Rfam assigns this 591-nucleotide RNA to the family "ROOL RNA". The family's RNA type in Rfam is small RNA.
RNA sequence: UUCGGUCUUUUUAAACAUGAUUAACUCAGUGAAGAUGGAUUUUUCAGUCCUGCUGAGAUGCAUUGGUGAUGAGAUAGGUUGGUUCUGGAUACUGGAUCAACUGAUUCUUUCCGGUAGAAGCGAUUCUGCUGGAGAAGAUGGGAACCAUCAACAACGCCGUGCAGUGUAUCAUCAUAGAGAAAUCAAAUGCAGAAUCCUUGUGGUCAGCGUAGAAUAGACGCUUGCGGUGCAAGAAUAAUCCGGUGAUGUGAGUAGCGUGAGAGACUACGGACUAACUGGAAAUUCUCAAUAAGCUGAUUUGCCUUGAAUCUGAGAAAUCGGAGUAUAACACAAGAAAUUCGUUAAAGUAGCGGUAUGGCAGUUUUAAAAAGCAAUCUUUCGAUACGAGCAUAUGAGAAUAAGGAAAUGCAAAUAGGCGAAAGCAUAAUCUGAAAGAACCGUGAAAUUUACGGGUAUCAAUCCCGUGUGUGCUUUGAUAGCGGUAAGAAGCCAAGGGUCGCUCCUGGACGCUCAGACUUAUCGUCACACUGGCUGAAUAUGAUUUCUACCAUGAUGAAUAAAGGGAAGCCUUAAUCAUGUUUAAAACAAUAC
Numbered sequence: 001u002u003c004g005g006u007c008u009u010u011u012u013a014a015a016c017a018u019g020a021u022u023a024a025c026u027c028a029g030u031g032a033a034g035a036u037g038g039a040u041u042u043u044u045c046a047g048u049c050c051u052g053c054u055g056a057g058a059u060g061c062a063u064u065g066g067u068g069a070u071g072a073g074a075u076a077g078g079u080u081g082g083u084u085c086u087g088g089a090u091a092c093u094g095g096a097u098c099a100a101c102u103g104a105u106u107c108u109u110u111c112c113g114g115u116a117g118a119a120g121c122g123a124u125u126c127u128g129c130u131g132g133a134g135a136a137g138a139u140g141g142g143a144a145c146c147a148u149c150a151a152c153a154a155c156g157c158c159g160u161g162c163a164g165u166g167u168a169u170c171a172u173c174a175u176a177g178a179g180a181a182a183u184c185a186a187a188u189g190c191a192g193a194a195u196c197c198u199u200g201u202g203g204u205c206a207g208c209g210u211a212g213a214a215u216a217g218a219c220g221c222u223u224g225c226g227g228u229g230c231a232a233g234a235a236u237a238a239u240c241c242g243g244u245g246a247u248g249u250g251a252g253u254a255g256c257g258u259g260a261g262a263g264a265c266u267a268c269g270g271a272c273u274a275a276c277u278g279g280a281a282a283u284u285c286u287c288a289a290u291a292a293g294c295u296g297a298u299u300u301g302c303c304u305u306g307a308a309u310c311u312g313a314g315a316a317a318u319c320g321g322a323g324u325a326u327a328a329c330a331c332a333a334g335a336a337a338u339u340c341g342u343u344a345a346a347g348u349a350g351c352g353g354u355a356u357g358g359c360a361g362u363u364u365u366a367a368a369a370a371g372c373a374a375u376c377u378u379u380c381g382a383u384a385c386g387a388g389c390a391u392a393u394g395a396g397a398a399u400a401a402g403g404a405a406a407u408g409c410a411a412a413u414a415g416g417c418g419a420a421a422g423c424a425u426a427a428u429c430u431g432a433a434a435g436a437a438c439c440g441u442g443a444a445a446u447u448u449a450c451g452g453g454u455a456u457c458a459a460u461c462c463c464g465u466g467u468g469u470g471c472u473u474u475g476a477u478a479g480c481g482g483u484a485a486g487a488a489g490c491c492a493a494g495g496g497u498c499g500c501u502c503c504u505g506g507a508c509g510c511u512c513a514g515a516c517u518u519a520u521c522g523u524c525a526c527a528c529u530g531g532c533u534g535a536a537u538a539u540g541a542u543u544u545c546u547a548c549c550a551u552g553a554u555g556a557a558u559a560a561a562g563g564g565a566a567g568c569c570u571u572a573a574u575c576a577u578g579u580u581u582a583a584a585a586c587a588a589u590a591c
Stems, first nucleotide, its partner, number of pairs: 008587001010585003014581002022573001025057005037050005059163005072108003075104001077102001079100007087092001109134011137149005169572001177549001182543001189533001192340004197334006203298006221233004239280005248272002253267003258288004299361005309322005344446001350441005428515004452463002467527003479524001482521001485518002489511001494504003560571004

About the family: Firmicutes, Fusobacteria (1 example), Tenericutes (1 example).